[Rfam]
RNA: SAM riboswitch aptamer (S box leader)
RNA sequence: CGCUUAUAGAGAAAGGCAGAGGGACUAGACCCAAUGAAGCCUUGGCAACCUGUCUUGGAGACAAGGUGCUACAUUCUACCCCACCUAAAAAAGGGAAAGAUAAGCG
Numbered sequence: 001c002g003c004u005u006a007u008a009g010a011g012a013a014a015g016g017c018a019g020a021g022g023g024a025c026u027a028g029a030c031c032c033a034a035u036g037a038a039g040c041c042u043u044g045g046c047a048a049c050c051u052g053u054c055u056u057g058g059a060g061a062c063a064a065g066g067u068g069c070u071a072c073a074u075u076c077u078a079c080c081c082c083a084c085c086u087a088a089a090a091a092a093g094g095g096a097a098a099g100a101u102a103a104g105c106g
Stems, first nucleotide, its partner, number of pairs: 001106007013043005021032003026078004044070004049066002052062003074098001079095003